The family of this 77-nucleotide RNA sequence from Crocodylus porosus is "Mammalian CPEB3 ribozyme". It scores 45 bits against the family's covariance model. From the family's description: The mammalian CPEB3 ribozyme is a self cleaving RNA located in the second intron of the CPEB3 gene which belongs to a family of genes regulating messenger RNA polyadenylation. NCBI's taxonomy places the organism under Eukaryota, Chordata, Sarcopterygii, Tetrapoda, Crocodylus. Rfam links the family to the GO term RNA nuclease activity.
[Rfam]
RNA sequence: GGUUGCAAGUUUAUGGCCAUAGCAGAAGCAUUCAUGGCACAGCCCUGUCAAAUUCCAGGGAAUCUGUGAAUUCUGCU
Numbered sequence: 001g002g003u004u005g006c007a008a009g010u011u012u013a014u015g016g017c018c019a020u021a022g023c024a025g026a027a028g029c030a031u032u033c034a035u036g037g038c039a040c041a042g043c044c045c046u047g048u049c050a051a052a053u054u055c056c057a058g059g060g061a062a063u064c065u066g067u068g069a070a071u072u073c074u075g076c077u
Stems, first nucleotide, its partner, number of pairs: 015044003021077007028040001049066002052063004